Description:
A member of the RNA family "drz-agam-1 ribozyme" from Hermetia illucens, 79 nucleotides long. NCBI's taxonomy places the organism under Eukaryota, Metazoa, Bilateria, Panarthropoda, Hermetia. A search with the family's covariance model found it, with a score of 37 bits. The family has 7 seed sequences and 10,507 matches in Rfam 15.1. Its family is annotated with catalytic activity in the Gene Ontology.
RNA sequence: UACUACAAAACCCUAUCUCCAUCUCCACGUGGUGAUCGCUGGGAGUUCUUUCAUCAUGGAAAACUGCAGACGGAGAAGG
Numbered sequence: 001u002a003c004u005a006c007a008a009a010a011c012c013c014u015a016u017c018u019c020c021a022u023c024u025c026c027a028c029g030u031g032g033u034g035a036u037c038g039c040u041g042g043g044a045g046u047u048c049u050u051u052c053a054u055c056a057u058g059g060a061a062a063a064c065u066g067c068a069g070a071c072g073g074a075g076a077a078g079g
Base pairs, nucleotide, nucleotide: 012079013078014077016075018073019072021033022032023031045065047063049061050060051059052058053057